The record is a 130-nucleotide RNA from Hibiscus trionum, which matches "Small nucleolar RNA snoR74" in Rfam.
Rfam links the family to the GO terms nucleolus and RNA processing.
The match comes from Rfam's covariance-model search (88 bits).
The family's consensus secondary structure was predicted with WAR.
[Rfam]
RNA sequence: GAAAAAGCAUGGUCUUGUUGCCUUUUGUGGGCGAGGCUAUCGUAAACUUCAUUAAAAUUAUUUGCAUUGUUAUCGGGUGAACCUCUGGAUCUUCUUGGUGACUGAAUGUUCAGUAAAUGAUGCCACUUUU
Numbered sequence: 001g002a003a004a005a006a007g008c009a010u011g012g013u014c015u016u017g018u019u020g021c022c023u024u025u026u027g028u029g030g031g032c033g034a035g036g037c038u039a040u041c042g043u044a045a046a047c048u049u050c051a052u053u054a055a056a057a058u059u060a061u062u063u064g065c066a067u068u069g070u071u072a073u074c075g076g077g078u079g080a081a082c083c084u085c086u087g088g089a090u091c092u093u094c095u096u097g098g099u100g101a102c103u104g105a106a107u108g109u110u111c112a113g114u115a116a117a118u119g120a121u122g123c124c125a126c127u128u129u130u
Base pairs, nucleotide, nucleotide: 005049006048007047011038012037014035015034016033017032065122066121067120068119069118070117071116078112079111080110081109082108084106